[Rfam]
RNA sequence: CGUCAAAAUCCGUGCCUGAAAUUGCGCGUUCGUCGCCGAUCGCGUAUACUUCGUGCGUUGACGUAACACAGUGUGUUUUGCGGAAACCAACCGCAUAACCCUGAAAAAACCUCGCUUCGGCGGGGUUUUUU
Numbered sequence: 001c002g003u004c005a006a007a008a009u010c011c012g013u014g015c016c017u018g019a020a021a022u023u024g025c026g027c028g029u030u031c032g033u034c035g036c037c038g039a040u041c042g043c044g045u046a047u048a049c050u051u052c053g054u055g056c057g058u059u060g061a062c063g064u065a066a067c068a069c070a071g072u073g074u075g076u077u078u079u080g081c082g083g084a085a086a087c088c089a090a091c092c093g094c095a096u097a098a099c100c101c102u103g104a105a106a107a108a109a110c111c112u113c114g115c116u117u118c119g120g121c122g123g124g125g126u127u128u129u130u131u
Stems, first nucleotide, its partner, number of pairs: 002062005011057002018052003023046006030039003069103003076097001079095005105130011

Rfam assigns this 131-nucleotide RNA from Enterobacter sp. 638 to the family "istR Hfq binding RNA". Taxonomically the source falls in Enterobacter (Bacteria, Pseudomonadati, Gammaproteobacteria, Enterobacteriaceae). It is one of the family's seed sequences. A reference for the family is Vogel et al. (2004), "The small RNA IstR inhibits synthesis of an SOS-induced toxic peptide", Curr Biol. Its family is annotated with negative regulation of translation and mRNA binding in the Gene Ontology.